Description: A member of the RNA family "SAM riboswitch aptamer (S box leader)" from Paenisporosarcina antarctica, 112 nucleotides long. The SAM riboswitch is found upstream of a number of genes which code for proteins involved in methionine or cysteine biosynthesis in Gram-positive bacteria. Its Rfam clan is "SAM clan". A reference for the family is Lu et al. (2010), "SAM recognition and conformational switching mechanism in the Bacillus subtilis yitJ S box/SAM-I riboswitch", J Mol Biol.
[Rfam]
Nucleotides: 112
Base pairs, nucleotide, nucleotide: 001112002111003110004109005108006107007106008105013042015041016040017039021032022031023030026084028082029081043076044075045074046073048072049071051067052066053065054064055063080104085101086100087099088098089097090096
Number, partner (000 for none) and nucleotide at each position: 001112u002111u003110c004109u005108u006107a007106u008105c009000a010000a011000g012000a013042g014000u015041g016040g017039u018000g019000g020000a021032g022031g023030g024000a025000c026084u027000u028082g029081g030023c031022c032021c033000u034000g035000u036000g037000a038000a039017a040016c041015c042013c043076a044075g045074c046073a047000a048072c049071c050000a051067u052066c053065a054064a055063g056000g057000u058000a059000a060000c061000c062000c063055c064054u065053u066052g067051a068000a069000a070000a071049g072048g073046u074045g075044c076043u077000a078000a079000u080104u081029c082028c083000u084026g085101c086100g087099g088098a089097u090096a091000g092000u093000g094000u095000a096090u097089a098088u099087c100086u101085g102000c103000a104080a105008g106007a107006u108005a109004a110003g111002a112001g